[Rfam]
RNA: Small nucleolar RNA SNORA53
RNA sequence: AACACGUUCCUUAGAUCCACCUCUGGGGAGUUUUUCCGCUCCGGUUCUGUUGUGUCCUCUCUUUGGGAGCAGCAGGAUCGGGCCGGAGGCUCCCAGCAGCUUUAUGGCUGUCCAGUCGGAGGUGCUUGAGUCAUUGGCGUGUGAGAUCAGUCUACCUGCUUACCCAGCAUCCUCUCUGCCCUGAUCCUGCAUGGAAAAACACCAGGGCAGAACUGCUGGAGAGCGGACAAA
Numbered sequence: 001a002a003c004a005c006g007u008u009c010c011u012u013a014g015a016u017c018c019a020c021c022u023c024u025g026g027g028g029a030g031u032u033u034u035u036c037c038g039c040u041c042c043g044g045u046u047c048u049g050u051u052g053u054g055u056c057c058u059c060u061c062u063u064u065g066g067g068a069g070c071a072g073c074a075g076g077a078u079c080g081g082g083c084c085g086g087a088g089g090c091u092c093c094c095a096g097c098a099g100c101u102u103u104a105u106g107g108c109u110g111u112c113c114a115g116u117c118g119g120a121g122g123u124g125c126u127u128g129a130g131u132c133a134u135u136g137g138c139g140u141g142u143g144a145g146a147u148c149a150g151u152c153u154a155c156c157u158g159c160u161u162a163c164c165c166a167g168c169a170u171c172c173u174c175u176c177u178g179c180c181c182u183g184a185u186c187c188u189g190c191a192u193g194g195a196a197a198a199a200c201a202c203c204a205g206g207g208c209a210g211a212a213c214u215g216c217u218g219g220a221g222a223g224c225g226g227a228c229a230a231a
Stems, first nucleotide, its partner, number of pairs: 002142007010130005018124008026094005035087004041081003046076004052070001055068003096111006156226005163219001166217004175211008